[Rfam]
Annotation: Rfam assigns this 80-nucleotide RNA sequence from Ascaris suum to the family "mir-44 microRNA precursor family". NCBI's taxonomy places the organism under Eukaryota, Chromadorea, Spirurina, Ascaridomorpha, Ascaris. Rfam links the family to the GO terms miRNA-mediated post-transcriptional gene silencing and RISC complex.
RNA sequence: CAGACGUGAAACUGGAUGUCUCUCGCAGUCAUACGGUAUAUAGAGUUCUAUGACUAGAGACACAUUCAGCUUGGCGGCUG
Numbered sequence: 001c002a003g004a005c006g007u008g009a010a011a012c013u014g015g016a017u018g019u020c021u022c023u024c025g026c027a028g029u030c031a032u033a034c035g036g037u038a039u040a041u042a043g044a045g046u047u048c049u050a051u052g053a054c055u056a057g058a059g060a061c062a063c064a065u066u067c068a069g070c071u072u073g074g075c076g077g078c079u080g
Base pairs, nucleotide, nucleotide: 005076006075007074009072012069013068014067015066016065017064018063019062023059027055028054029053030052031051032050033049